[Rfam]
RNA sequence: CCCGCGGCUAGACGGAAAGACCCCGUGAACCUUUACUACAGUUUUGCACUGGACUUUGAUGAUAACUGUGUAGGAUAGGUGGGAGGCUAAGAAGUGCGGACGCCAGUUCGCAUGGAGCCGACCUUGAAAUACCACCCUGUUAUUAUUGAGGUUCUAACUUGGUCCAGUAAUCCUGGAUGAGGACAGUGUAUGAUGGGUAGUUUGACUGGGGCGGUCUCCUCCCAAAGAGUAACGGAGGAGCACAAAGGUACCCUCGGUACGGUCGGACAUCGUACCAAGAGUGUAAAGGCAAAAGGGUGCUUGACUGCGAGAGUGACGGCUCGAGCAGGUACGAAAGUAGGUCUUAGUGAUCCGGUGGUUCUGUAUGGAAGGGCCAUCGCUCAACGGAUAAAAGGUACUCCGGGGAUAACAGGCUGAUACCGCCCAAGAGUUCAUAUCGACGGCGGUGUUUGGCACCUCGAUGUCGGCUCAUCACAUCCUGGGGCUGAAGCAGGUCCCAAGGGUAUGGCUGUUCGCCAUUUAAAGUGGUACGCGAGCUGGGUUUAGAACGUCGUGAGACAGUUCGGUCCCUAUCUGCCGUGGGCGUA
Number, nucleotide and partner (000 for none) at each position: 001c583002c582003c581004g580005c579006g578007g577008c576009u000010a575011g574012a573013c000014g570015g569016a000017a000018a000019g000020a000021c000022c404023c403024c402025g401026u000027g400028a399029a396030c395031c394032u393033u392034u000035a201036c200037u199038a198039c000040a000041g000042u193043u192044u000045u190046g189047c188048a187049c000050u000051g154052g153053a152054c151055u150056u149057u148058g147059a146060u145061g144062a143063u142064a141065a140066c139067u000068g137069u000070g000071u000072a000073g000074g000075a000076u000077a000078g136079g135080u134081g133082g132083g000084a000085g119086g118087c117088u000089a000090a000091g000092a000093a000094g113095u112096g111097c110098g109099g108100a107101c106102g000103c000104c000105a000106g101107u100108u099109c098110g097111c096112a095113u094114g000115g000116a000117g087118c086119c085120g000121a000122c000123c000124u000125u000126g000127a000128a000129a000130u000131a000132c082133c081134a080135c079136c078137c068138u000139g066140u065141u064142a063143u062144u061145a060146u059147u058148g057149a056150g055151g054152u053153u052154c051155u000156a000157a000158c181159u180160u179161g000162g178163u177164c176165c175166a174167g173168u000169a000170a000171u000172c000173c167174u166175g165176g164177a163178u162179g160180a159181g158182g000183a000184c000185a000186g000187u048188g047189u046190a045191u000192g043193a042194u000195g000196g000197g000198u038199a037200g036201u035202u000203u000204g216205a215206c214207u213208g000209g000210g000211g000212c000213g207214g206215u205216c204217u239218c238219c237220u236221c235222c234223c000224a000225a000226a000227g000228a000229g000230u000231a000232a000233c000234g222235g221236a220237g219238g218239a217240g385241c000242a342243c341244a000245a000246a000247g000248g300249u299250a298251c297252c296253c295254u280255c279256g000257g275258u274259a273260c272261g271262g270263u000264c000265g000266g000267a000268c000269a000270u262271c261272g260273u259274a258275c257276c000277a000278a000279g255280a254281g290282u289283g000284u000285a000286a000287a000288g000289g282290c281291a000292a000293a000294a000295g253296g252297g251298u250299g249300c248301u000302u000303g000304a000305c328306u327307g326308c325309g000310a000311g322312a321313g320314u000315g000316a000317c000318g000319g000320c313321u312322c311323g000324a000325g308326c307327a306328g305329g000330u339331a338332c337333g000334a000335a000336a000337g332338u331339a330340g000341g243342u242343c000344u000345u000346a000347g000348u000349g000350a000351u000352c000353c379354g378355g377356u376357g375358g374359u373360u000361c372362u371363g000364u000365a000366u000367g000368g000369a000370a000371g362372g361373g359374c358375c357376a356377u355378c354379g353380c000381u000382c000383a000384a000385c240386g000387g000388a000389u000390a000391a000392a033393a032394g031395g030396u029397a000398c000399u028400c027401c025402g024403g023404g022405g000406a000407u000408a000409a000410c000411a000412g000413g454414c453415u452416g000417a451418u448419a447420c446421c445422g444423c443424c442425c000426a000427a000428g438429a437430g000431u000432u000433c000434a000435u000436a000437u429438c428439g000440a000441c000442g424443g423444c422445g421446g420447u419448g418449u000450u000451u417452g415453g414454c413455a000456c000457c000458u000459c000460g000461a000462u000463g000464u000465c540466g538467g537468c536469u535470c532471a529472u528473c527474a526475c525476a000477u000478c503479c502480u000481g498482g497483g496484g495485c494486u493487g000488a000489a000490g000491c000492a000493g486494g485495u484496c483497c482498c481499a000500a000501g000502g479503g478504u000505a519506u518507g517508g516509c515510u000511g000512u000513u000514c000515g509516c508517c507518a506519u505520u000521u000522a000523a000524a000525g475526u474527g473528g472529u471530a000531c000532g470533c000534g000535a469536g468537c467538u466539g000540g465541g000542u000543u000544u000545a000546g564547a563548a562549c561550g559551u558552c557553g000554u000555g000556a000557g552558a551559c550560a000561g549562u548563u547564c546565g000566g000567u000568c000569c015570c014571u000572a000573u012574c011575u010576g008577c007578c006579g005580u004581g003582g002583g001584c000585g000586u000587a000
RNA: Bacterial large subunit ribosomal RNA, nucleotides 2051 to 2637